The record is a 157-nucleotide sequence from Striga hermonthica, which matches "small nucleolar RNA snoR134" in Rfam. The source organism's lineage runs through Eukaryota, Streptophyta, eudicotyledons, Gunneridae and Striga. Rfam classes the family as an H/ACA-box small nucleolar RNA. Gene Ontology terms of the family: RNA processing and nucleolus. Rfam 15.1 lists 792 matches to the family in 228 species. A reference for the family is Chen and Wu (2009), "Mining small RNA sequencing data: a new approach to identify small nucleolar RNAs in Arabidopsis", Nucleic Acids Res.
RNA sequence: UUGCACGUAGCUACCCCGGGCUCCUCUGAAACUCACCGAUGUAGAAAGAAGCCCCAAUGCUAGUGCUAAAAUUUUCGCCCUUUAGUGUUGCAGAUCUGUCGCCUUUGUACCUUAUUAAUCCGCACGACCGAUCUGUGUCAAAUAAAUGGCUAUAUUU
Numbered sequence: 001u002u003g004c005a006c007g008u009a010g011c012u013a014c015c016c017c018g019g020g021c022u023c024c025u026c027u028g029a030a031a032c033u034c035a036c037c038g039a040u041g042u043a044g045a046a047a048g049a050a051g052c053c054c055c056a057a058u059g060c061u062a063g064u065g066c067u068a069a070a071a072u073u074u075u076c077g078c079c080c081u082u083u084a085g086u087g088u089u090g091c092a093g094a095u096c097u098g099u100c101g102c103c104u105u106u107g108u109a110c111c112u113u114a115u116u117a118a119u120c121c122g123c124a125c126g127a128c129c130g131a132u133c134u135g136u137g138u139c140a141a142a143u144a145a146a147u148g149g150c151u152a153u154a155u156u157u
Stems, first nucleotide, its partner, number of pairs: 003066004010060002018054005023048001025045003077150003081146003086140002089137006098128003